[Rfam]
RNA sequence: AUAGGUCACAAGUUUGAGGCCAUAACAGAAGUGCUCAUGGCAUGGCCUUGUCAGAUCCCAACAAAUCUGCAAGUUCUGCU
Numbered sequence: 001a002u003a004g005g006u007c008a009c010a011a012g013u014u015u016g017a018g019g020c021c022a023u024a025a026c027a028g029a030a031g032u033g034c035u036c037a038u039g040g041c042a043u044g045g046c047c048u049u050g051u052c053a054g055a056u057c058c059c060a061a062c063a064a065a066u067c068u069g070c071a072a073g074u075u076c077u078g079c080u
Stems, first nucleotide, its partner, number of pairs: 017048005024080001026078005031043003052069005
The family of this 80-nucleotide RNA from Alligator mississippiensis is "Mammalian CPEB3 ribozyme". The match comes from Rfam's covariance-model search (44 bits). The mammalian CPEB3 ribozyme is a self cleaving RNA located in the second intron of the CPEB3 gene which belongs to a family of genes regulating messenger RNA polyadenylation. This ribozyme is highly conserved and found only in mammals. The CPEB3 ribozyme is structurally and biochemically related to the human hepatitis delta virus (HDV) ribozyme and the HDV ribozyme is proposed to have arisen from the human transcriptome. There is currently only one other known self cleaving ribozyme in mammals, the CoTC motif.